[Rfam]
RNA sequence: UGAAGCCCUUUCACUUUACCAUGUAGAUCAGUACAUGUCUAUAUUGGUCAUUCGCUGGGGCCACAACAACAAUCUUCUUAAAACCCAAGCAAAUCCUUGUAUUUGACUUGUGUCCUGUCAGAGGAAACAGUC
Numbered sequence: 001u002g003a004a005g006c007c008c009u010u011u012c013a014c015u016u017u018a019c020c021a022u023g024u025a026g027a028u029c030a031g032u033a034c035a036u037g038u039c040u041a042u043a044u045u046g047g048u049c050a051u052u053c054g055c056u057g058g059g060g061c062c063a064c065a066a067c068a069a070c071a072a073u074c075u076u077c078u079u080a081a082a083a084c085c086c087a088a089g090c091a092a093a094u095c096c097u098u099g100u101a102u103u104u105g106a107c108u109u110g111u112g113u114c115c116u117g118u119c120a121g122a123g124g125a126a127a128c129a130g131u132c
Stems, first nucleotide, its partner, number of pairs: 036063002039060002045054003073125006086110001087108001090105005
The record is a 132-nucleotide RNA from Leptobrachium leishanense, which matches "Small nucleolar RNA SNORA27" in Rfam. Gene Ontology terms of the family: nucleolus and RNA processing. The base pairs follow the family's consensus structure. The family is grouped with related families in Rfam's "SNORA27 clan". ACA27 is a member of the H/ACA class of snoRNA that guide the sites of modification of uridines to pseudouridines.